RNA sequence: UCGUCCCGGCUCGUGGACGCCCCGACCAUCGCGCCGCGCUCCCGGCUACGCUGGCGAGGUGCGCCCGCCGCGGAACCUGCCCUGCGGGCGCAAAGCCGACAGCCGUCGCACUCCAGGGAGCCCUUUCAUG
Numbered sequence: 001u002c003g004u005c006c007c008g009g010c011u012c013g014u015g016g017a018c019g020c021c022c023c024g025a026c027c028a029u030c031g032c033g034c035c036g037c038g039c040u041c042c043c044g045g046c047u048a049c050g051c052u053g054g055c056g057a058g059g060u061g062c063g064c065c066c067g068c069c070g071c072g073g074a075a076c077c078u079g080c081c082c083u084g085c086g087g088g089c090g091c092a093a094a095g096c097c098g099a100c101a102g103c104c105g106u107c108g109c110a111c112u113c114c115a116g117g118g119a120g121c122c123c124u125u126u127c128a129u130g
Stems, first nucleotide, its partner, number of pairs: 060092004065087004095109002098107003

Annotation:
The family of this 130-nucleotide RNA sequence from Streptomyces sp. NRRL WC-3605 is "Streptomyces-metH RNA". The source organism's lineage runs through Bacteria, Bacillati, Actinomycetota, Kitasatosporales and Streptomyces.